RNA sequence: UGGUAGAUGCACCCUGGUGAUUCACCCCCAGCCUUAAACUGGGGGUUUUUUGU
Numbered sequence: 001u002g003g004u005a006g007a008u009g010c011a012c013c014c015u016g017g018u019g020a021u022u023c024a025c026c027c028c029c030a031g032c033c034u035u036a037a038a039c040u041g042g043g044g045g046u047u048u049u050u051u052g053u
Stems, first nucleotide, its partner, number of pairs: 002013003025045007
Rfam assigns this 53-nucleotide RNA sequence from Coleofasciculus sp. LEGE 07092 to the family "Nitrogen stress-induced RNA 1". The match comes from Rfam's covariance-model search (53 bits). Rfam classes the family as a small RNA.